[Rfam]
RNA sequence: UGCCCGCAGGGGUUCCUGGCGAUGCGAUUUGUUCCUGCCUCUCUCGCCCCAAAUCACAUUGCCAGGGAUUUCCAACGGGCA
Numbered sequence: 001u002g003c004c005c006g007c008a009g010g011g012g013u014u015c016c017u018g019g020c021g022a023u024g025c026g027a028u029u030u031g032u033u034c035c036u037g038c039c040u041c042u043c044u045c046g047c048c049c050c051a052a053a054u055c056a057c058a059u060u061g062c063c064a065g066g067g068a069u070u071u072c073c074a075a076c077g078g079g080c081a
Stems, first nucleotide, its partner, number of pairs: 001081002004078003010073002012069013026055005
The family of this 81-nucleotide RNA sequence from Psilopogon haemacephalus is "mir-23 microRNA precursor family".
NCBI's taxonomy places the organism under Eukaryota, Gnathostomata, Dinosauria, Neoaves, Psilopogon.
Pairs were carried over by alignment from the consensus structure, which was predicted with PFOLD.
Its family is annotated with gene silencing by miRNA and RISC complex in the Gene Ontology.
The match comes from Rfam's covariance-model search (69 bits).